[Rfam]
RNA sequence: GUGAAAAUGAUGAAAAAUUCACUAUUUGGAAAAGAAUGACAUUAACAAAGGAACCGCUGAUGCAC
Numbered sequence: 001g002u003g004a005a006a007a008u009g010a011u012g013a014a015a016a017a018u019u020c021a022c023u024a025u026u027u028g029g030a031a032a033a034g035a036a037u038g039a040c041a042u043u044a045a046c047a048a049a050g051g052a053a054c055c056g057c058u059g060a061u062g063c064a065c
Base pairs, nucleotide, nucleotide: 001065002064003063005061

This 65-nucleotide sequence from Octodon degus belongs to the Rfam family "Small nucleolar RNA SNORD42". By type it is a C/D-box small nucleolar RNA. The family's consensus secondary structure was predicted with PFOLD. The literature on the family includes a 2001 paper in EMBO J by Huttenhofer et al., "RNomics: an experimental approach that identifies 201 candidates for novel, small, non-messenger RNAs in mouse".